[Rfam]
RNA: Sense overlapping transcript RNA 0042 (sot)
RNA sequence: CGGUAACUCCAAGUCCGUCACAGGAUAGGAGUAACGGCUGUUUGGCACAGCCAUCGGUGCGCCUGUUCGACACAUCCACGGGUCGAGUAGGCCCACAAGAACAGGUUGCGCCGUGAACCCUAAUAUCCCAACGUGGGAAUCCCACGGCUUCAGCCGUGUGG
Numbered sequence: 001c002g003g004u005a006a007c008u009c010c011a012a013g014u015c016c017g018u019c020a021c022a023g024g025a026u027a028g029g030a031g032u033a034a035c036g037g038c039u040g041u042u043u044g045g046c047a048c049a050g051c052c053a054u055c056g057g058u059g060c061g062c063c064u065g066u067u068c069g070a071c072a073c074a075u076c077c078a079c080g081g082g083u084c085g086a087g088u089a090g091g092c093c094c095a096c097a098a099g100a101a102c103a104g105g106u107u108g109c110g111c112c113g114u115g116a117a118c119c120c121u122a123a124u125a126u127c128c129c130a131a132c133g134u135g136g137g138a139a140u141c142c143c144a145c146g147g148c149u150u151c152a153g154c155c156g157u158g159u160g161g
Stems, first nucleotide, its partner, number of pairs: 003035002007031004013026003036052005055113006062105007081094002084091001126138004140161002143158006